[Rfam]
RNA sequence: GUGCAAAUGAUGGAAACAUUAUCGACUGAAGAAAGUGAUGCUUUCAAAGGAACCACUGAUGCAC
Number, nucleotide and partner (000 for none) at each position: 001g064002u063003g062004c061005a060006a000007a000008u000009g000010a000011u000012g000013g000014a000015a000016a000017c000018a000019u000020u000021a000022u000023c000024g000025a000026c000027u000028g000029a000030a000031g000032a000033a000034a000035g000036u000037g000038a000039u000040g000041c000042u000043u000044u000045c000046a000047a000048a000049g000050g000051a000052a000053c000054c000055a000056c000057u000058g000059a000060u005061g004062c003063a002064c001
The record is a 64-nucleotide RNA from Podarcis muralis, which matches "Small nucleolar RNA SNORD42" in Rfam. A reference for the family is Galardi et al. (2002), "Purified box C/D snoRNPs are able to reproduce site-specific 2'-O-methylation of target RNA in vitro", Mol Cell Biol. Taxonomically the source falls in Podarcis (Eukaryota, Bilateria, Chordata, Teleostomi). It scores 62 bits against the family's covariance model. The family's consensus secondary structure was predicted with PFOLD. Rfam links the family to the GO terms RNA processing and nucleolus. The family's RNA type in Rfam is C/D-box small nucleolar RNA.